[Rfam]
RNA: L31-Actinobacteria ribosomal protein leader
Nucleotides: 047
Stems, first nucleotide, its partner, number of pairs: 003047003007043004015037005021031003
Number, partner (000 for none) and nucleotide at each position: 001000u002000c003047g004046g005045c006000c007043c008042c009041g010040g011000u012000u013000c014000a015037c016036g017035g018034a019033c020000a021031c022030g023029c024000a025000u026000c027000c028000c029023g030022u031021g032000c033019g034018u035017c036016c037015g038000a039000c040010c041009c042008g043007g044000u045005g046004c047003c